[Rfam]
RNA sequence: CCCCCAAGGGGAAGCGAAGACCCUAUAGAGCUUUACUGCAGGCUGUCGCUGAGACGUGGCCGCUGACGUGCAGGAUAGGUAGGAGACGCUACACAGGUACCCGCGCCAGCGGGCCACCGAGUCAACACUGAAAUACUACCCGUCAGUGGCUGCGACUCUCACUCCGGGAGGAGAACACCGGUAGCCGGGCAGUUUGACUGGGGCGGUACGCGCUCGAAAAGAUAUCGAGCGCGCCCCAAGAUUUCCUCACGCGGGACAGGAACCCGCGGAAGAGCGCAAGAGCACAAGGAAGUCUGACAGUGUCAUUCCAAGCGAGUGACGCUGACGCGAAAGCGUGGUCUAGCGAACGGAUCACGGGCCUCAAUGGCCCGGAUUUACGACAGAAAAGCUACCUUAGGGAUAACAGAGUCGUCACGCGCAAGAGCACAUAUCGACCGCGUGGCUUGCUACCUCGAUGUCGGUUCCCUCCAUCCUGCCCGUGCAGAAGCGGGCAAGGGUGAGGUUGUUCGCCUAUUAAAGGAGGUCGUGAGCUGGGUUUAGACCGUCGUGAGACAGGUCGGCUGCUAUCUAUUGGGGGUGUUAC
Numbered sequence: 001c002c003c004c005c006a007a008g009g010g011g012a013a014g015c016g017a018a019g020a021c022c023c024u025a026u027a028g029a030g031c032u033u034u035a036c037u038g039c040a041g042g043c044u045g046u047c048g049c050u051g052a053g054a055c056g057u058g059g060c061c062g063c064u065g066a067c068g069u070g071c072a073g074g075a076u077a078g079g080u081a082g083g084a085g086a087c088g089c090u091a092c093a094c095a096g097g098u099a100c101c102c103g104c105g106c107c108a109g110c111g112g113g114c115c116a117c118c119g120a121g122u123c124a125a126c127a128c129u130g131a132a133a134u135a136c137u138a139c140c141c142g143u144c145a146g147u148g149g150c151u152g153c154g155a156c157u158c159u160c161a162c163u164c165c166g167g168g169a170g171g172a173g174a175a176c177a178c179c180g181g182u183a184g185c186c187g188g189g190c191a192g193u194u195u196g197a198c199u200g201g202g203g204c205g206g207u208a209c210g211c212g213c214u215c216g217a218a219a220a221g222a223u224a225u226c227g228a229g230c231g232c233g234c235c236c237c238a239a240g241a242u243u244u245c246c247u248c249a250c251g252c253g254g255g256a257c258a259g260g261a262a263c264c265c266g267c268g269g270a271a272g273a274g275c276g277c278a279a280g281a282g283c284a285c286a287a288g289g290a291a292g293u294c295u296g297a298c299a300g301u302g303u304c305a306u307u308c309c310a311a312g313c314g315a316g317u318g319a320c321g322c323u324g325a326c327g328c329g330a331a332a333g334c335g336u337g338g339u340c341u342a343g344c345g346a347a348c349g350g351a352u353c354a355c356g357g358g359c360c361u362c363a364a365u366g367g368c369c370c371g372g373a374u375u376u377a378c379g380a381c382a383g384a385a386a387a388g389c390u391a392c393c394u395u396a397g398g399g400a401u402a403a404c405a406g407a408g409u410c411g412u413c414a415c416g417c418g419c420a421a422g423a424g425c426a427c428a429u430a431u432c433g434a435c436c437g438c439g440u441g442g443c444u445u446g447c448u449a450c451c452u453c454g455a456u457g458u459c460g461g462u463u464c465c466c467u468c469c470a471u472c473c474u475g476c477c478c479g480u481g482c483a484g485a486a487g488c489g490g491g492c493a494a495g496g497g498u499g500a501g502g503u504u505g506u507u508c509g510c511c512u513a514u515u516a517a518a519g520g521a522g523g524u525c526g527u528g529a530g531c532u533g534g535g536u537u538u539a540g541a542c543c544g545u546c547g548u549g550a551g552a553c554a555g556g557u558c559g560g561c562u563g564c565u566a567u568c569u570a571u572u573g574g575g576g577g578u579g580u581u582a583c
Base pairs, nucleotide, nucleotide: 001577002576003575004574005573006572007571010569011568012567014564015563022398023397024396025395027394028393029390030389031388032387033386035193036192037191038190042185043184044183045182046181047180048179051158052157053156055154056153057152058151059150060149061148062147063146064145065144066143067142068141078140079139080138081137082136085123086122087121100113101112102111103110104109162173163172164171165170196209197207198206199205210232211231212230213229214228215227235338236337241293242292243291244290245289246288247273248272250268251267252266253265254264255263274283275282298324299323300322301321302320303319304318305317306316326335328333349376350375351374352373353372355371356370357369358368359367407448408447409446411445412442413441414440415439416438417437418436422432423431459534460532461531462530463529464526465523466522467521468520469519472497473496476491477490478489479488480487500512501511502510503509540558541557542556543555544553545552546551
This 583-nucleotide part of an RNA from Halobaculum gomorrense belongs to the Rfam family "Archaeal large subunit ribosomal RNA". Lineage of the source: Archaea > Methanobacteriati > Methanobacteriota > Halobacteria > Halobaculum. Gene Ontology terms of the family: structural constituent of ribosome and ribosome.